Shown here is a 157-nucleotide RNA sequence from Leersia perrieri, a member of the family "mir-393 microRNA precursor family".
A search with the family's covariance model found it, with a score of 62 bits.
The literature on the family includes a 2012 paper in J Plant Physiol by Kruszka et al., "Role of microRNAs and other sRNAs of plants in their changing environments".
The family has 27 seed sequences and 1,052 matches in Rfam 15.1.

RNA sequence: AGUGUAAGACUCCAAAGGGAUCGCAUUGAUCUGGCUAGCUAAUAGCUACAGCUCGAAUGCCCUCUAUGCAUCGAUCUGCAGCAUUAGCUUCACGCAUGGAUGCUCUCGAUCGACGACGUGCAAGAUCGAUCAGUGCAAUCCCUUUGGAAUUUUCCAC
Numbered sequence: 001a002g003u004g005u006a007a008g009a010c011u012c013c014a015a016a017g018g019g020a021u022c023g024c025a026u027u028g029a030u031c032u033g034g035c036u037a038g039c040u041a042a043u044a045g046c047u048a049c050a051g052c053u054c055g056a057a058u059g060c061c062c063u064c065u066a067u068g069c070a071u072c073g074a075u076c077u078g079c080a081g082c083a084u085u086a087g088c089u090u091c092a093c094g095c096a097u098g099g100a101u102g103c104u105c106u107c108g109a110u111c112g113a114c115g116a117c118g119u120g121c122a123a124g125a126u127c128g129a130u131c132a133g134u135g136c137a138a139u140c141c142c143u144u145u146g147g148a149a150u151u152u153u154c155c156a157c
Stems, first nucleotide, its partner, number of pairs: 002157003006153001008151002011148011023136003026132001028131004
Dot-bracket structure: .(((.(.((.(((((((((((.((((.((((................................................................................................))))).))).))))))))))).)).).)))